[Rfam]
RNA: mir-1302 microRNA precursor family
RNA sequence: CUUCUAGUAUAAGUAUACCCCGUGCAAUAUCUGGGACAUACUUUUACUAAAA
Numbered sequence: 001c002u003u004c005u006a007g008u009a010u011a012a013g014u015a016u017a018c019c020c021c022g023u024g025c026a027a028u029a030u031c032u033g034g035g036a037c038a039u040a041c042u043u044u045u046a047c048u049a050a051a052a
Stems, first nucleotide, its partner, number of pairs: 006048004011043002014040003019035003022031001